A member of the RNA family "Bacterial large signal recognition particle RNA" from Eubacterium sp. CAG:146, 264 nucleotides long.
A reference for the family is Rosenblad et al. (2003), "SRPDB: Signal Recognition Particle Database", Nucleic Acids Res.
The organism belongs to Eubacterium, within Bacteria.
The base pairs follow the family's consensus structure, which is taken from published work.
From the family's description: The signal recognition particle (SRP) is a universally conserved ribonucleoprotein involved in the co-translational targeting of proteins to membranes.
By type it is a non-coding RNA gene.
RNA sequence: CCGUGCAGCUGGGAAGUUAGCGGCGUCCUGUACCUGAAAUCCGCUAUAGCAGGAGUGAUGGUCAGCCUCGGAUGUCUUAUUGAUGGAGCUGCCCUUUAUAAGUGGUGUUGACAAUUGGGUCUCGCGCAACAGGAACCUCUGAACCGUGUCAGGUCGGGAACGGAGCAGCACUAAGGAGUCUCUCCUGUGUGCCGUGAGGGUGCCUGGUUCGAGCUAACUGUAGAGGUAACGUCUGUUGGUAAGCAUACAAAGCUGACCGCACGG
Numbered sequence: 001c002c003g004u005g006c007a008g009c010u011g012g013g014a015a016g017u018u019a020g021c022g023g024c025g026u027c028c029u030g031u032a033c034c035u036g037a038a039a040u041c042c043g044c045u046a047u048a049g050c051a052g053g054a055g056u057g058a059u060g061g062u063c064a065g066c067c068u069c070g071g072a073u074g075u076c077u078u079a080u081u082g083a084u085g086g087a088g089c090u091g092c093c094c095u096u097u098a099u100a101a102g103u104g105g106u107g108u109u110g111a112c113a114a115u116u117g118g119g120u121c122u123c124g125c126g127c128a129a130c131a132g133g134a135a136c137c138u139c140u141g142a143a144c145c146g147u148g149u150c151a152g153g154u155c156g157g158g159a160a161c162g163g164a165g166c167a168g169c170a171c172u173a174a175g176g177a178g179u180c181u182c183u184c185c186u187g188u189g190u191g192c193c194g195u196g197a198g199g200g201u202g203c204c205u206g207g208u209u210c211g212a213g214c215u216a217a218c219u220g221u222a223g224a225g226g227u228a229a230c231g232u233c234u235g236u237u238g239g240u241a242a243g244c245a246u247a248c249a250a251a252g253c254u255g256a257c258c259g260c261a262c263g264g
Base pairs, nucleotide, nucleotide: 001264002263003262004261005260006259008056009055010054011029012028013027014026016024017023018022033053034052035051036050062256063255064254065253066252068250070248072246073245074244075243077242078241079240080239081238082237083236084235085234086233090228091227094225095224096223097222098221099220102218103217104215105214106213113209114208115207116206117205118204119203120202121198122197123196124195125194126193127189128188130187131186132185133184134183137178138177139176140175146171147170148169149168154163155162156161